[Rfam]
RNA sequence: GAGUCGCCCGCGCCCCAUCCGGGACGCGGGGGAGCCGGGGACCCACCGCAGCACUGGGGUGAAUCUCGCGCCGGGCACCAUCCGGCGCGGUAGGGCAGACCCGAGCCCGAACCCGUCAGCUAACUCGGUAGGCGGUAUCGGAAGAAACG
Numbered sequence: 001g002a003g004u005c006g007c008c009c010g011c012g013c014c015c016c017a018u019c020c021g022g023g024a025c026g027c028g029g030g031g032g033a034g035c036c037g038g039g040g041a042c043c044c045a046c047c048g049c050a051g052c053a054c055u056g057g058g059g060u061g062a063a064u065c066u067c068g069c070g071c072c073g074g075g076c077a078c079c080a081u082c083c084g085g086c087g088c089g090g091u092a093g094g095g096c097a098g099a100c101c102c103g104a105g106c107c108c109g110a111a112c113c114c115g116u117c118a119g120c121u122a123a124c125u126c127g128g129u130a131g132g133c134g135g136u137a138u139c140g141g142a143a144g145a146a147a148c149g
Stems, first nucleotide, its partner, number of pairs: 011134004018033003034129006044056002057114003065090002093108004

Shown here is a 149-nucleotide sequence from Blastococcus sp. CCUG 61487, a member of the family "c-di-AMP riboswitch aptamer (ydaO/yuaA leader)".
NCBI's taxonomy places the organism under Bacteria, Bacillati, Actinomycetes, Geodermatophilaceae, Blastococcus.
Its family is annotated with regulation of gene expression and cyclic-di-AMP binding in the Gene Ontology.
It scores 64 bits against the family's covariance model.
Pairs were carried over by alignment from the consensus structure.